[Rfam]
RNA sequence: GGAUUGAUGAUGAUUCCCCUGUCCAAACAUUCCUUGGAAAAGGUGAACAAAAUGAGUGAAACUCACUACUAUCUCACUCUUCAGAACUGAGUCC
Numbered sequence: 001g002g003a004u005u006g007a008u009g010a011u012g013a014u015u016c017c018c019c020u021g022u023c024c025a026a027a028c029a030u031u032c033c034u035u036g037g038a039a040a041a042g043g044u045g046a047a048c049a050a051a052a053u054g055a056g057u058g059a060a061a062c063u064c065a066c067u068a069c070u071a072u073c074u075c076a077c078u079c080u081u082c083a084g085a086a087c088u089g090a091g092u093c094c
Stems, first nucleotide, its partner, number of pairs: 001094005028058005034050003
Dot-bracket structure: (((((......................(((((.(((...........)))...)))))...............................)))))
RNA: Small nucleolar RNA SNORD116